[Rfam]
RNA sequence: AUGUGCCUGGCUCCCUGUAUGCCAUUUGCAGAGCACCACCGGAACAGCGAUGGCCUCCGUGAAUGGCGUAUGAGGAGCCAUGCAUAU
Numbered sequence: 001a002u003g004u005g006c007c008u009g010g011c012u013c014c015c016u017g018u019a020u021g022c023c024a025u026u027u028g029c030a031g032a033g034c035a036c037c038a039c040c041g042g043a044a045c046a047g048c049g050a051u052g053g054c055c056u057c058c059g060u061g062a063a064u065g066g067c068g069u070a071u072g073a074g075g076a077g078c079c080a081u082g083c084a085u086a087u
Stems, first nucleotide, its partner, number of pairs: 001087006008080007016072009027061003

Rfam assigns this 87-nucleotide RNA sequence from Punica granatum to the family "mir-160 microRNA precursor family". NCBI's taxonomy places the organism under Eukaryota, Streptophyta, Myrtales, Lythraceae, Punica. It scores 70 bits against the family's covariance model.